[Rfam]
RNA sequence: CGGUGAGGUAGAGGCGCAAGUAAUAAGAGUAGUCUAUCGGAGUAUGACAGCGUUGAUGAUAGAUGAAAGGAUUGUUUGCCGAAGCAUAAUGAGGGUCAAACUUAUUAAUGCUGGGAUGUUUCCUGAAUAAGGAGCAGACUGUCAUGCAUGUUUUUUGCAUGGAGAACUACUGAUCGA
Numbered sequence: 001c002g003g004u005g006a007g008g009u010a011g012a013g014g015c016g017c018a019a020g021u022a023a024u025a026a027g028a029g030u031a032g033u034c035u036a037u038c039g040g041a042g043u044a045u046g047a048c049a050g051c052g053u054u055g056a057u058g059a060u061a062g063a064u065g066a067a068a069g070g071a072u073u074g075u076u077u078g079c080c081g082a083a084g085c086a087u088a089a090u091g092a093g094g095g096u097c098a099a100a101c102u103u104a105u106u107a108a109u110g111c112u113g114g115g116a117u118g119u120u121u122c123c124u125g126a127a128u129a130a131g132g133a134g135c136a137g138a139c140u141g142u143c144a145u146g147c148a149u150g151u152u153u154u155u156u157g158c159a160u161g162g163a164g165a166a167c168u169a170c171u172g173a174u175c176g177a
Stems, first nucleotide, its partner, number of pairs: 007171005016079009032064008083112004087107007113140002117136006142162007
RNA: Lysine riboswitch aptamer
Organism: Oceanobacillus bengalensis